[Rfam]
RNA sequence: AGCAAAUGCACUCUGUGUCACAUUGAUUUAUAGCCUCAUGUGAUGACAAUUUGUUAAUUUGCCAGAUCAAGGGAAAGCGUCUUAUCCAUGUAGUCAAACCCCAAUCUGGGUAAUUGCAUUGAAAACGCAUUUAACAUAAA
Dot-bracket structure: .((((((..((..((((((((((.((.........))))))))).)))....))..)))))).......(...((.(((.....((.(((((((..................))))))).))...)))..))....)...